Source information:
This 78-nucleotide RNA sequence from Comamonas flocculans belongs to the Rfam family "int-alpA RNA". Rfam classes the family as a small RNA. Acidobacteria (1 example), Planctomycetes (1 example), Proteobacteria.

RNA sequence: GCCCCAGCUAGGCCAGCUUCGAAACCUGGCCGAAAAGCCGGAAACCUUCGCCGGCCUGCUGGGGCACCGGAACGAAGG
Dot-bracket structure: ((((((((..((((((.........)))))).....(((((...[[[[[.)))))..))))))))........]]]]]